[Rfam]
RNA sequence: GCUGGGAAGGGGAAGAAAGAGAGCUCAAGAGCACUAGGAAUGGGAACAUGGAGGAAAGCCCUGCUUGUUUGUUUGCACCUCUAGUCUUAGGGAUGCAAAUAUUUGGCAUAGAUCUUUUCCUGAUGCCUCCCAUUCCCGUCGUUCCUGUGCACUCCUUCCUCUUCCCUUAGGAU
Numbered sequence: 001g002c003u004g005g006g007a008a009g010g011g012g013a014a015g016a017a018a019g020a021g022a023g024c025u026c027a028a029g030a031g032c033a034c035u036a037g038g039a040a041u042g043g044g045a046a047c048a049u050g051g052a053g054g055a056a057a058g059c060c061c062u063g064c065u066u067g068u069u070u071g072u073u074u075g076c077a078c079c080u081c082u083a084g085u086c087u088u089a090g091g092g093a094u095g096c097a098a099a100u101a102u103u104u105g106g107c108a109u110a111g112a113u114c115u116u117u118u119c120c121u122g123a124u125g126c127c128u129c130c131c132a133u134u135c136c137c138g139u140c141g142u143u144c145c146u147g148u149g150c151a152c153u154c155c156u157u158c159c160u161c162u163u164c165c166c167u168u169a170g171g172a173u
Stems, first nucleotide, its partner, number of pairs: 009164005015158003021154003024149001026147002029144004035138001037136009047125003051121001053120006

A member of the RNA family "MIR2118 microRNA precursor family" from Triticum aestivum, 173 nucleotides long. The literature on the family includes a 2008 paper in Genome Res by Zhu et al., "A diverse set of microRNAs and microRNA-like small RNAs in developing rice grains". The organism belongs to Triticum, within Eukaryota. The base pairs follow the family's consensus structure, which was predicted with RNAalifold. It scores 118 bits against the family's covariance model.